This 117-nucleotide sequence from Limosilactobacillus fermentum belongs to the Rfam family "Ribosomal protein L10 leader". The source organism's lineage runs through Bacteria, Bacillati, Bacilli, Lactobacillaceae and Limosilactobacillus. The match comes from Rfam's covariance-model search (65 bits). Rfam classes the family as a cis-regulatory leader. About the family: This family is a putative r-protein leader autoregulatory structure found in B. subtilis and other low-GC Gram-positive bacteria. It is located in the 5' untranslated regions of mRNAs encoding ribosomal proteins L10 and L12 (rplJ-rplL). A reference for the family is Zengel and Lindahl (1994), "Diverse mechanisms for regulating ribosomal protein synthesis in Escherichia coli", Prog Nucleic Acid Res Mol Biol.
[Rfam]
RNA sequence: UGAUUAAAUAUGACUCUGCCUAAGACUCAGGUGGCGCAAGCCUCAAUACCCUGCCGAGGAAGAAAUGAAAUGUUCCUUCUCUAUGUCUGCCAGUCAUAGGGAAUUUUUUAUAAAUUC
Numbered sequence: 001u002g003a004u005u006a007a008a009u010a011u012g013a014c015u016c017u018g019c020c021u022a023a024g025a026c027u028c029a030g031g032u033g034g035c036g037c038a039a040g041c042c043u044c045a046a047u048a049c050c051c052u053g054c055c056g057a058g059g060a061a062g063a064a065a066u067g068a069a070a071u072g073u074u075c076c077u078u079c080u081c082u083a084u085g086u087c088u089g090c091c092a093g094u095c096a097u098a099g100g101g102a103a104u105u106u107u108u109u110a111u112a113a114a115u116u117c
Stems, first nucleotide, its partner, number of pairs: 028053004033042003078102008087093001